[Rfam]
RNA sequence: AGAAUAUAAGAAAUCUUCUCUUAGUUUUUAACUAAAAAAUUUAAGAACCAUUAAGAGCCGGUUCUUAACUUUUUUAGUUAAAAACUAAGAGACGGUUUCUUAUAUUCC
Numbered sequence: 001a002g003a004a005u006a007u008a009a010g011a012a013a014u015c016u017u018c019u020c021u022u023a024g025u026u027u028u029u030a031a032c033u034a035a036a037a038a039a040u041u042u043a044a045g046a047a048c049c050a051u052u053a054a055g056a057g058c059c060g061g062u063u064c065u066u067a068a069c070u071u072u073u074u075u076a077g078u079u080a081a082a083a084a085c086u087a088a089g090a091g092a093c094g095g096u097u098u099c100u101u102a103u104a105u106u107c108c
Base pairs, nucleotide, nucleotide: 002107003106004105005104006103007102008101009100010099011098012097013096014095015094017092018091019090020089021088022087023086024085025084026083027082028081029080030079031078032077033076034075035074036073037072038071039070041068042067043066044065045064046063047062

This 108-nucleotide sequence from Brassica napus belongs to the Rfam family "MIR9563 microRNA precursor family". The source organism's lineage runs through Eukaryota, Streptophytina, Embryophyta, Gunneridae and Brassica. Its family is annotated with RISC complex and miRNA-mediated post-transcriptional gene silencing in the Gene Ontology.